[Rfam]
RNA sequence: CAACUGAAAGUGAGAGUUGGAGGAAAACAAACUAGUUCUCCAGAUGGACAAUCAUGGUCCUAGAUAAGCUUGUUUUCCUCCAAUAUCUCACCUUCGCUCA
Numbered sequence: 001c002a003a004c005u006g007a008a009a010g011u012g013a014g015a016g017u018u019g020g021a022g023g024a025a026a027a028c029a030a031a032c033u034a035g036u037u038c039u040c041c042a043g044a045u046g047g048a049c050a051a052u053c054a055u056g057g058u059c060c061u062a063g064a065u066a067a068g069c070u071u072g073u074u075u076u077c078c079u080c081c082a083a084u085a086u087c088u089c090a091c092c093u094u095c096g097c098u099c100a
Stems, first nucleotide, its partner, number of pairs: 005096004011090004016084006023077008032068002

Shown here is a 100-nucleotide RNA from Brachypodium distachyon, a member of the family "MIR2275 microRNA precursor family". The source organism's lineage runs through Eukaryota, Streptophytina, Magnoliopsida, Stipodae and Brachypodium. Rfam 15.1 lists 785 matches to the family in 111 species. A search with the family's covariance model found it, with a score of 70 bits.